The record is a 67-nucleotide sequence from Microtus ochrogaster, which matches "mir-344 microRNA precursor family" in Rfam. Lineage of the source: Eukaryota > Deuterostomia > Sarcopterygii > Amniota > Microtus. For this family Rfam cites "Mammalian microRNAs: experimental evaluation of novel and previously annotated genes" (Chiang et al., Genes Dev, 2010).

[Rfam]
RNA sequence: UUGCCAGCCAGUCUCCUGGCUAAAGUCCAGCUUUUAGCUGGAAUUUAGUCAGGAGAUUGGCUAUAAA
Numbered sequence: 001u002u003g004c005c006a007g008c009c010a011g012u013c014u015c016c017u018g019g020c021u022a023a024a025g026u027c028c029a030g031c032u033u034u035u036a037g038c039u040g041g042a043a044u045u046u047a048g049u050c051a052g053g054a055g056a057u058u059g060g061c062u063a064u065a066a067a
Base pairs, nucleotide, nucleotide: 007061008060009059011057012056013055014054017051018050019049020048021047022046023045024044027041028040029039030038031037